[Rfam]
RNA sequence: AUCGUUCAACUUCUUAGGAAGUCGGAAGUAGGUGAAAACUGAAGGAACGCGCC
Numbered sequence: 001a002u003c004g005u006u007c008a009a010c011u012u013c014u015u016a017g018g019a020a021g022u023c024g025g026a027a028g029u030a031g032g033u034g035a036a037a038a039c040u041g042a043a044g045g046a047a048c049g050c051g052c053c
Stems, first nucleotide, its partner, number of pairs: 003049005009022005025050001031040003
RNA: Glutamine riboswitch aptamer (glnA leader)